[Rfam]
RNA sequence: GGGGUGUGCUCAGAGCAGGGGGCCUGAAGAAUGGCUCUCUGUUUACAACACACCCAACAGGAAUCUGGGUUCAUUGUGACAAGGGGCACAACUUGUGGCCUUCCUAUAAACAAUUGCCCUACACAU
Numbered sequence: 001g002g003g004g005u006g007u008g009c010u011c012a013g014a015g016c017a018g019g020g021g022g023c024c025u026g027a028a029g030a031a032u033g034g035c036u037c038u039c040u041g042u043u044u045a046c047a048a049c050a051c052a053c054c055c056a057a058c059a060g061g062a063a064u065c066u067g068g069g070u071u072c073a074u075u076g077u078g079a080c081a082a083g084g085g086g087c088a089c090a091a092c093u094u095g096u097g098g099c100c101u102u103c104c105u106a107u108a109a110a111c112a113a114u115u116g117c118c119c120u121a122c123a124c125a126u
Stems, first nucleotide, its partner, number of pairs: 002055007013044012068119002071116001075112003081107001083101003087097004
A member of the RNA family "Small nucleolar RNA SNORA11" from Loxodonta africana, 126 nucleotides long. Rfam 15.1 lists 2,014 matches to the family in 202 species. NCBI's taxonomy places the organism under Eukaryota, Deuterostomia, Gnathostomata, Amniota, Loxodonta. On this family, see Gu et al., Nucleic Acids Res 2005: "A novel experimental approach for systematic identification of box H/ACA snoRNAs from eukaryotes". Gene Ontology terms of the family: nucleolus and RNA processing. Pairs were carried over by alignment from the consensus structure, which was predicted with RNAalifold. The sequence is in the family's curated seed alignment. U107 (SNORA11) is a member of the H/ACA class of snoRNAs that guide the sites of modification of uridines to pseudouridines. Rfam classes the family as an H/ACA-box small nucleolar RNA.